[Rfam]
RNA sequence: GUGCUGUGAUGGCGUUUGGCAGAAUCGCACUGCUUGUGUACUUCGCAAUUUGGACUACAUUGAAAGUGUCCGGUUCGAUCCCCGCGGUCGAGGAUGUGGUUAUUCGAGUAAUCAAUAUUCCUAUCCUCAGCAAUGAGUAGCACUAUCACUGGAGGGAAGAUAAUUCAGCACAGUAGGCUACCCGUGGCGGAGGCGAAGCGGAUGGCACAUUCUUUGGCAUUGGUUCAGGUUGUUAAGUAUCUGGUGUGGAGACUCCAAUUUGAUUU
Numbered sequence: 001g002u003g004c005u006g007u008g009a010u011g012g013c014g015u016u017u018g019g020c021a022g023a024a025u026c027g028c029a030c031u032g033c034u035u036g037u038g039u040a041c042u043u044c045g046c047a048a049u050u051u052g053g054a055c056u057a058c059a060u061u062g063a064a065a066g067u068g069u070c071c072g073g074u075u076c077g078a079u080c081c082c083c084g085c086g087g088u089c090g091a092g093g094a095u096g097u098g099g100u101u102a103u104u105c106g107a108g109u110a111a112u113c114a115a116u117a118u119u120c121c122u123a124u125c126c127u128c129a130g131c132a133a134u135g136a137g138u139a140g141c142a143c144u145a146u147c148a149c150u151g152g153a154g155g156g157a158a159g160a161u162a163a164u165u166c167a168g169c170a171c172a173g174u175a176g177g178c179u180a181c182c183c184g185u186g187g188c189g190g191a192g193g194c195g196a197a198g199c200g201g202a203u204g205g206c207a208c209a210u211u212c213u214u215u216g217g218c219a220u221u222g223g224u225u226c227a228g229g230u231u232g233u234u235a236a237g238u239a240u241c242u243g244g245u246g247u248g249g250a251g252a253c254u255c256c257a258a259u260u261u262g263a264u265u266u
Stems, first nucleotide, its partner, number of pairs: 001015004018264001020262004025257001028251001030249004036242001039239003045233013062212003066208004070201003074197004079191003082187006089130001090128002092125001094124003098120002101117004106113002131135001137181005143176001148174004156166003

A member of the RNA family "Fungal signal recognition particle RNA" from Candidozyma auris, 266 nucleotides long. The base pairs follow the family's consensus structure, which is taken from published work. The match comes from Rfam's covariance-model search (127 bits). Its family is annotated with SRP-dependent cotranslational protein targeting to membrane, signal sequence recognition, signal recognition particle, endoplasmic reticulum targeting and signal recognition particle, plasma membrane targeting in the Gene Ontology. On this family, see Wild et al., Curr Opin Struct Biol 2002: "Towards the structure of the mammalian signal recognition particle".